[Rfam]
RNA sequence: UUGCACAGUGAACACCCCAGCGUGCUAUGUAGCACUCCUGGUCAUUUGAAUCUGUGCCAAAGUAAAAUCUGGUCUGUACCUCUGCAUUGAAAGAACUUUCUUUUCUUCGAAAUGUAUUCAACGGCCCAGUACAUGU
Numbered sequence: 001u002u003g004c005a006c007a008g009u010g011a012a013c014a015c016c017c018c019a020g021c022g023u024g025c026u027a028u029g030u031a032g033c034a035c036u037c038c039u040g041g042u043c044a045u046u047u048g049a050a051u052c053u054g055u056g057c058c059a060a061a062g063u064a065a066a067a068u069c070u071g072g073u074c075u076g077u078a079c080c081u082c083u084g085c086a087u088u089g090a091a092a093g094a095a096c097u098u099u100c101u102u103u104u105c106u107u108c109g110a111a112a113u114g115u116a117u118u119c120a121a122c123g124g125c126c127c128a129g130u131a132c133a134u135g136u
Stems, first nucleotide, its partner, number of pairs: 003057006010051001013048002017041004022035001024033003059075001061073001063071002083120002085114004091107005
A member of the RNA family "Small nucleolar RNA SNORA22" from Acipenser ruthenus, 136 nucleotides long.
The match comes from Rfam's covariance-model search (98 bits).
About the family: ACA22 is a member of the H/ACA class of snoRNA that guide the sites of modification of uridines to pseudouridines.